[Rfam]
Rfam assigns this 148-nucleotide sequence from Kumtagia ephedrae to the family "Alphaproteobacterial sRNA ar9". It scores 110 bits against the family's covariance model. The literature on the family includes a 2012 paper in RNA Biol by del Val et al., "A survey of sRNA families in alpha-proteobacteria". The source organism's lineage runs through Bacteria, Pseudomonadati, Alphaproteobacteria, Phyllobacteriaceae and Kumtagia. By type it is a small RNA.
RNA sequence: AUAACCGAGAAGGCGAUGAGCAAUUCGCUUUCCUACGCGGUCAAGUCUUGGGAGGAUGCGAUCUAGGCGCGAGAAAUUGCUGCCGCCGGACACCGGAAAGCAGAUCGGACGCGUUAAAAUUGCAAGGCCUUGUGCCUUGCAUUUUUUU
Numbered sequence: 001a002u003a004a005c006c007g008a009g010a011a012g013g014c015g016a017u018g019a020g021c022a023a024u025u026c027g028c029u030u031u032c033c034u035a036c037g038c039g040g041u042c043a044a045g046u047c048u049u050g051g052g053a054g055g056a057u058g059c060g061a062u063c064u065a066g067g068c069g070c071g072a073g074a075a076a077u078u079g080c081u082g083c084c085g086c087c088g089g090a091c092a093c094c095g096g097a098a099a100g101c102a103g104a105u106c107g108g109a110c111g112c113g114u115u116a117a118a119a120u121u122g123c124a125a126g127g128c129c130u131u132g133u134g135c136c137u138u139g140c141a142u143u144u145u146u147u148u
Stems, first nucleotide, its partner, number of pairs: 003148002011030006036113004045057004060106005066084003069080003086096003121141008